[Rfam]
RNA sequence: UGCUGUCUUUGGCUUCUUUACAGUGCUGCCUUGUUGCAUAUGGAUCAAGCAGCAUUGUACAGGGCUAUGAAGACACUA
Numbered sequence: 001u002g003c004u005g006u007c008u009u010u011g012g013c014u015u016c017u018u019u020a021c022a023g024u025g026c027u028g029c030c031u032u033g034u035u036g037c038a039u040a041u042g043g044a045u046c047a048a049g050c051a052g053c054a055u056u057g058u059a060c061a062g063g064g065c066u067a068u069g070a071a072g073a074c075a076c077u078a
Stems, first nucleotide, its partner, number of pairs: 014064004019059010030049004

The family of this 78-nucleotide sequence from Ophiophagus hannah is "mir-103/107 microRNA precursor family". A search with the family's covariance model found it, with a score of 90 bits. The literature on the family includes a 2002 paper in Genes Dev by Mourelatos et al., "miRNPs: a novel class of ribonucleoproteins containing numerous microRNAs". The family's consensus secondary structure was predicted with RNAalifold. Rfam's curators write: This family consists of the mammalian microRNA (miRNA) precursors mir-103 and mir107. Animal miRNAs are transcribed as ~70nt precursors and subsequently processed by the Dicer enzyme to give a ~22nt product. In this case the mature sequence comes from the 3' arm of the precursor. The extents of the hairpin precursors are not generally known and are estimated based on hairpin prediction. The organism belongs to Ophiophagus, within Eukaryota.